[Rfam]
Nucleotides: 091
Base pairs, nucleotide, nucleotide: 001091002090003089004088005087006086007085009083
Number, partner (000 for none) and nucleotide at each position: 001091g002090c003089u004088g005087g006086u007085g008000a009083a010000g011000c012000u013000g014000a015000u016000g017000a018000u019000a020000c021000c022000a023000c024000u025000u026000c027000u028000u029000u030000c031000c032000c033000c034000a035000u036000c037000a038000g039000a040000u041000c042000g043000a044000c045000c046000c047000u048000g049000u050000u051000g052000a053000u054000c055000u056000c057000a058000u059000a060000u061000g062000c063000u064000a065000a066000u067000a068000g069000c070000c071000a072000g073000u074000u075000u076000u077000c078000u079000c080000u081000g082000a083009u084000g085007c086006a087005c088004c089003a090002g091001c
Shown here is a 91-nucleotide RNA from Rattus norvegicus, a member of the family "Small nucleolar SNORD12/SNORD106". Rfam links the family to the GO terms nucleolus and RNA processing. The family's consensus secondary structure was predicted with RNAalifold. A reference for the family is Huttenhofer et al. (2001), "RNomics: an experimental approach that identifies 201 candidates for novel, small, non-messenger RNAs in mouse", EMBO J. The family's RNA type in Rfam is C/D-box small nucleolar RNA. Rfam 15.1 lists 2,264 matches to the family in 650 species.